Description:
The family of this 77-nucleotide RNA sequence from Xenopus tropicalis is "mir-425 microRNA precursor family". Rfam's curators put it in the seed alignment. Taxonomically the source falls in Silurana (Eukaryota, Chordata, Euteleostomi, Pipidae). On this family, see Devor and Samollow, J Hered 2008: "In vitro and in silico annotation of conserved and nonconserved microRNAs in the genome of the marsupial Monodelphis domestica". Rfam links the family to the GO terms RISC complex and miRNA-mediated post-transcriptional gene silencing.
RNA sequence: GCCUUGGAAUGACACGAUCACUCCCGUUGAGCCGAAACUCACAGCGCCAUCGGGAAUAUCGUGUCGCUCCAAAGCUC
Dot-bracket structure: ((.((((...((((((((...(((((.((.((.............)))).)))))..))))))))...)))).))..
Numbered sequence: 001g002c003c004u005u006g007g008a009a010u011g012a013c014a015c016g017a018u019c020a021c022u023c024c025c026g027u028u029g030a031g032c033c034g035a036a037a038c039u040c041a042c043a044g045c046g047c048c049a050u051c052g053g054g055a056a057u058a059u060c061g062u063g064u065c066g067c068u069c070c071a072a073a074g075c076u077c
Stems, first nucleotide, its partner, number of pairs: 001075002004072004011065008022055005028049002031047002